[Rfam]
This 285-nucleotide sequence from Blastocystis hominis belongs to the Rfam family "Plant signal recognition particle RNA". Rfam links the family to the GO terms SRP-dependent cotranslational protein targeting to membrane, signal sequence recognition and signal recognition particle, endoplasmic reticulum targeting. Pairs were carried over by alignment from the consensus structure, which is taken from published work. The family is grouped with related families in Rfam's "SRP clan". NCBI's taxonomy places the organism under Eukaryota, Bigyra, Opalinata, Blastocystidae, Blastocystis. Rfam classes the family as a non-coding RNA gene.

RNA sequence: GCUGGGUUGAGUCGCGUCAACUUGUCACCCGAGCGGGAGUAGGUUGGCAGGAGGUGUAAGGUCCUUUGGGUGUUUGUUUGGACUGUCAGUGACUUGCCCAGUUGGCUUUGGUGGUUAACGUGGGGUUCUCUUAGGAAUUCGAGAAUGCCAUGUUACUAGGGAAUGGGGUACCGCUGGAGGCUGGCAACAGAGCACAGAAAACCCAUCGUCACUUGAGCCAACUGGAUUACGGGUCUAUAUGACAUCCUUACAAAGUCCUUAGGAAGGUUUGCAUCCACUGUUAAU
Numbered sequence: 001g002c003u004g005g006g007u008u009g010a011g012u013c014g015c016g017u018c019a020a021c022u023u024g025u026c027a028c029c030c031g032a033g034c035g036g037g038a039g040u041a042g043g044u045u046g047g048c049a050g051g052a053g054g055u056g057u058a059a060g061g062u063c064c065u066u067u068g069g070g071u072g073u074u075u076g077u078u079u080g081g082a083c084u085g086u087c088a089g090u091g092a093c094u095u096g097c098c099c100a101g102u103u104g105g106c107u108u109u110g111g112u113g114g115u116u117a118a119c120g121u122g123g124g125g126u127u128c129u130c131u132u133a134g135g136a137a138u139u140c141g142a143g144a145a146u147g148c149c150a151u152g153u154u155a156c157u158a159g160g161g162a163a164u165g166g167g168g169u170a171c172c173g174c175u176g177g178a179g180g181c182u183g184g185c186a187a188c189a190g191a192g193c194a195c196a197g198a199a200a201a202c203c204c205a206u207c208g209u210c211a212c213u214u215g216a217g218c219c220a221a222c223u224g225g226a227u228u229a230c231g232g233g234u235c236u237a238u239a240u241g242a243c244a245u246c247c248u249u250a251c252a253a254a255g256u257c258c259u260u261a262g263g264a265a266g267g268u269u270u271g272c273a274u275c276c277a278c279u280g281u282u283a284a285u
Base pairs, nucleotide, nucleotide: 001040002039003038004023005022006021007020008019009018010017028037029036030035043285044284045283046282047281048280049279050278053275055273056272057271058269059268062264063263064262065261068259069258070257073254074253075252079244082240084239085238091235092234093233094232095231096230098225099224101222102221103220104219105218106217107216108215110213111212112211113210114209115208116155117154118153119152120151121150122149123148125146126145127144128143129142130141133138156161163206164205165204166203167202174197175196176195181190182189183188